[Rfam]
RNA sequence: AAAGCUCUUUUUUGUAGUGCGCUCGUCGCUAAACCAACAGACGCGGUGCACGAAACUGGAGAGCAAGAGAU
Numbered sequence: 001a002a003a004g005c006u007c008u009u010u011u012u013u014g015u016a017g018u019g020c021g022c023u024c025g026u027c028g029c030u031a032a033a034c035c036a037a038c039a040g041a042c043g044c045g046g047u048g049c050a051c052g053a054a055a056c057u058g059g060a061g062a063g064c065a066a067g068a069g070a071u
Stems, first nucleotide, its partner, number of pairs: 004064006017051007024043004
The family of this 71-nucleotide RNA sequence from Trypanosoma cruzi is "Trypanosomatid snoRNA TB11Cs2H1". The literature on the family includes a 2005 paper in RNA by Liang et al., "A genome-wide analysis of C/D and H/ACA-like small nucleolar RNAs in Trypanosoma brucei reveals a trypanosome-specific pattern of rRNA modification". It is one of the family's seed sequences. The family's consensus secondary structure was predicted with WAR. Its family is annotated with RNA processing and nucleolus in the Gene Ontology.